This 102-nucleotide RNA from Bacillus methanolicus belongs to the Rfam family "Purine riboswitch aptamer".
Gene Ontology term of the family: purine nucleobase biosynthetic process.
The source organism's lineage runs through Bacteria, Bacillota, Bacilli, Caryophanales and Bacillus methanolicus.
RNA sequence: UUAAUUUCAUAAGCAUUCACUCAUAUAAUGGCGGGGAUAUGGCCCGCGAGUCUCUACCGGAACACCGUAAAUGUUCCGACUAUGGGUGAGCAAUGGGAAAAU
Numbered sequence: 001u002u003a004a005u006u007u008c009a010u011a012a013g014c015a016u017u018c019a020c021u022c023a024u025a026u027a028a029u030g031g032c033g034g035g036g037a038u039a040u041g042g043c044c045c046g047c048g049a050g051u052c053u054c055u056a057c058c059g060g061a062a063c064a065c066c067g068u069a070a071a072u073g074u075u076c077c078g079a080c081u082a083u084g085g086g087u088g089a090g091c092a093a094u095g096g097g098a099a100a101a102u
Stems, first nucleotide, its partner, number of pairs: 018088008029049001031047005058078007
It scores 89 bits against the family's covariance model.